Rfam assigns this 68-nucleotide RNA sequence from Operophtera brumata to the family "mir-2766 microRNA precursor family". Rfam links the family to the GO terms miRNA-mediated post-transcriptional gene silencing and RISC complex. The family's consensus secondary structure was predicted with RNAalifold. It scores 67 bits against the family's covariance model.

RNA sequence: GACGUGUCCGCCAUUCGUCUCGACCGGUGCUUCGUAUCGCAUCAGUCUUGUCGAAUGGUGGGUGCGUU
Dot-bracket structure: .((((((((((((((((.(..(((.((.((........)).)).)))..).)))))))))))))))).